[Rfam]
RNA: DUF805b RNA
Organism: Roseivirga spongicola
RNA sequence: AAGGGGAUUGCCGAAAACCCUGAAAGAGAGUAGGUA
Numbered sequence: 001a002a003g004g005g006g007a008u009u010g011c012c013g014a015a016a017a018c019c020c021u022g023a024a025a026g027a028g029a030g031u032a033g034g035u036a
Stems, first nucleotide, its partner, number of pairs: 002021004010035003